drz-agam-2-2 ribozyme: a 195-nucleotide sequence from Anopheles gambiae. Rfam links the family to the GO term catalytic activity. For this family Rfam cites "Widespread occurrence of self-cleaving ribozymes" (Webb et al., Science, 2009). Taxonomically the source falls in Anopheles gambiae (Eukaryota, Bilateria, Arthropoda, Cellia).

RNA sequence: UUGGUACUGUGCUCUGUAAUGGGAUGGGAUCUGAAACCCCAGUGAGGGAUAAUACAGGCUCUCCCAUCCAACUUCUAUUCCGACACGUCCUCGUCGUGCAGAGUGGUAACAUGUGUCACCACAUAUCCAAGCUUGGGUACACGGGUUUGACCCAACCCCUUGGGCGGAUGGUGGCAUACGUCAAACCAGGAAGGG
Numbered sequence: 001u002u003g004g005u006a007c008u009g010u011g012c013u014c015u016g017u018a019a020u021g022g023g024a025u026g027g028g029a030u031c032u033g034a035a036a037c038c039c040c041a042g043u044g045a046g047g048g049a050u051a052a053u054a055c056a057g058g059c060u061c062u063c064c065c066a067u068c069c070a071a072c073u074u075c076u077a078u079u080c081c082g083a084c085a086c087g088u089c090c091u092c093g094u095c096g097u098g099c100a101g102a103g104u105g106g107u108a109a110c111a112u113g114u115g116u117c118a119c120c121a122c123a124u125a126u127c128c129a130a131g132c133u134u135g136g137g138u139a140c141a142c143g144g145g146u147u148u149g150a151c152c153c154a155a156c157c158c159c160u161u162g163g164g165c166g167g168a169u170g171g172u173g174g175c176a177u178a179c180g181u182c183a184a185a186c187c188a189g190g191a192a193g194g195g
Stems, first nucleotide, its partner, number of pairs: 013101001022069008031058002073195004078191002081189001085097003089106002109181002112178004117173004125169004133155006157164002
Dot-bracket structure: ............{........((((((((.((........................))...))))))))...((((.((.(...(((.[[....)))...}...]]..((.((((.((((....((((....((((((...........)))))).((....)).)))))))).)))).)).......)))))))